The family of this 204-nucleotide RNA from Indicator maculatus is "Small nucleolar RNA SNORA74".
The base pairs follow the family's consensus structure, which was predicted with PFOLD.
Rfam links the family to the GO terms RNA processing and nucleolus.
A search with the family's covariance model found it, with a score of 123 bits.
The family is grouped with related families in Rfam's "SNORA74 clan".
U19 belongs to the H/ACA class of snoRNAs. snoRNAs bind a number of proteins (including dyskerin, Gar1p and Nop10p in the case of the H/ACA class) to form snoRNP complexes. This class are thought to guide the sites of modification of uridines to pseudouridines by forming direct base pairing interactions with substrate RNAs. Targets may include ribosomal and spliceosomal RNAs but the exact functions of many snoRNAs, including U19, are not confirmed. Co-precipitation of U19 snoRNA with RNase MRP RNA suggests that U19 may be involved in pre-rRNA processing.

[Rfam]
RNA sequence: CCCAGCAGUGGUCAGCUACACAUUGCUGCUCAGUGCCUGUGAUAGUGUUACACUGCUGGGAGAGAAACGUGCUGCCAAGCUGUUCCUGGCACCACCAGUGCUGUCUUAGUGCUGCAUGGUGCUAGGUUUUGGCAGCAUUCUGCAUGUUUGAGAGUGGAGUAACUCCUGCUUGGUGGAGUUAAUCCUAGAUUGGAUGCAGACAGU
Numbered sequence: 001c002c003c004a005g006c007a008g009u010g011g012u013c014a015g016c017u018a019c020a021c022a023u024u025g026c027u028g029c030u031c032a033g034u035g036c037c038u039g040u041g042a043u044a045g046u047g048u049u050a051c052a053c054u055g056c057u058g059g060g061a062g063a064g065a066a067a068c069g070u071g072c073u074g075c076c077a078a079g080c081u082g083u084u085c086c087u088g089g090c091a092c093c094a095c096c097a098g099u100g101c102u103g104u105c106u107u108a109g110u111g112c113u114g115c116a117u118g119g120u121g122c123u124a125g126g127u128u129u130u131g132g133c134a135g136c137a138u139u140c141u142g143c144a145u146g147u148u149u150g151a152g153a154g155u156g157g158a159g160u161a162a163c164u165c166c167u168g169c170u171u172g173g174u175g176g177a178g179u180u181a182a183u184c185c186u187a188g189a190u191u192g193g194a195u196g197c198a199g200a201c202a203g204u
Stems, first nucleotide, its partner, number of pairs: 001060009011051002015046004021039002025036002069138009085126003089122006096114007140199006147192001156185003160181007